[Rfam]
RNA sequence: GGAGGGAUCGCAUAGUCCGGCCUAGUGCGCUCGCCUCGAAAGCGAGUAGGCCCGCAAGGGUCUCGAGGGUUCGAAUCCCUCUCCCUCCG
Numbered sequence: 001g002g003a004g005g006g007a008u009c010g011c012a013u014a015g016u017c018c019g020g021c022c023u024a025g026u027g028c029g030c031u032c033g034c035c036u037c038g039a040a041a042g043c044g045a046g047u048a049g050g051c052c053c054g055c056a057a058g059g060g061u062c063u064c065g066a067g068g069g070u071u072c073g074a075a076u077c078c079c080u081c082u083c084c085c086u087c088c089g
Base pairs, nucleotide, nucleotide: 001088002087003086004085005084006083007082010028011027012026013025030046031045032044033043034042065081066080067079068078069077